RNA sequence: CGAACCGGCGGGCUUGGGAGAGCUCAAGGGUUCACGGGAUCCGGCGGGCGGCUUGGGAGAGCAGGCUUCAAGGAUCGAGCAAAAGGGGAGAUUCCCGAUGGAGAAUACGCUUCUCGUCGGACUAUCACGGCAGAUGACGCUGG
Numbered sequence: 001c002g003a004a005c006c007g008g009c010g011g012g013c014u015u016g017g018g019a020g021a022g023c024u025c026a027a028g029g030g031u032u033c034a035c036g037g038g039a040u041c042c043g044g045c046g047g048g049c050g051g052c053u054u055g056g057g058a059g060a061g062c063a064g065g066c067u068u069c070a071a072g073g074a075u076c077g078a079g080c081a082a083a084a085g086g087g088g089a090g091a092u093u094c095c096c097g098a099u100g101g102a103g104a105a106u107a108c109g110c111u112u113c114u115c116g117u118c119g120g121a122c123u124a125u126c127a128c129g130g131c132a133g134a135u136g137a138c139g140c141u142g143g
Stems, first nucleotide, its partner, number of pairs: 002033005010025006038076005051062004095120005101115005
RNA: flg-Rhizobiales RNA
Organism: Afipia sp. GAS231